[Rfam]
RNA sequence: UCCUAGCCCUGAUGGGAACGGCAUCCUUUUUAUUUUUUCUUUAAAAAUAAAAAGAUAUAGUGGACAGCAGGAAGCAGC
Numbered sequence: 001u002c003c004u005a006g007c008c009c010u011g012a013u014g015g016g017a018a019c020g021g022c023a024u025c026c027u028u029u030u031u032a033u034u035u036u037u038u039c040u041u042u043a044a045a046a047a048u049a050a051a052a053a054g055a056u057a058u059a060g061u062g063g064a065c066a067g068c069a070g071g072a073a074g075c076a077g078c
Base pairs, nucleotide, nucleotide: 009070010069011068013066014065018061019060023056024055025054029051030050031049032048033047034046035045036044
RNA: Flavo-1 RNA
Organism: Flavobacterium sp. KMS